[Rfam]
RNA sequence: GCAUGGGGACGACCCCGUUGCCUCAGGUUCUGCCCGGGACGGCCCGG
Numbered sequence: 001g002c003a004u005g006g007g008g009a010c011g012a013c014c015c016c017g018u019u020g021c022c023u024c025a026g027g028u029u030c031u032g033c034c035c036g037g038g039a040c041g042g043c044c045c046g047g
Stems, first nucleotide, its partner, number of pairs: 001018002005016004034047005

Shown here is a 47-nucleotide RNA from Rhodobacter sp. 24-YEA-8, a member of the family "Guanidine-II riboswitch aptamer (mini-ykkC)". Rfam describes the family as follows. Simpler in structure and has fewer highly conserved nucleotide positions than the ykkC-yxkD leader. Taxonomically the source falls in Rhodobacter (Bacteria, Pseudomonadati, Alphaproteobacteria, Rhodobacterales).